Streptomyces-metH RNA: a 122-nucleotide RNA from Streptomyces cinnamoneus.
[Rfam]
RNA sequence: CGGUCCGUACCGUGAAACGCCCUCGGCCCCCGGCGCGCCCGCCCGAUACGCUUGCCGCGUGCGCCUCUCUGCAGGGAGGGCGCAAAGCCGACAGCCGUCGCACACCCGGGAGCACACCCAUG
Numbered sequence: 001c002g003g004u005c006c007g008u009a010c011c012g013u014g015a016a017a018c019g020c021c022c023u024c025g026g027c028c029c030c031c032g033g034c035g036c037g038c039c040c041g042c043c044c045g046a047u048a049c050g051c052u053u054g055c056c057g058c059g060u061g062c063g064c065c066u067c068u069c070u071g072c073a074g075g076g077a078g079g080g081c082g083c084a085a086a087g088c089c090g091a092c093a094g095c096c097g098u099c100g101c102a103c104a105c106c107c108g109g110g111a112g113c114a115c116a117c118c119c120a121u122g
Stems, first nucleotide, its partner, number of pairs: 060084004066079004087101002090099003

By type it is a small RNA.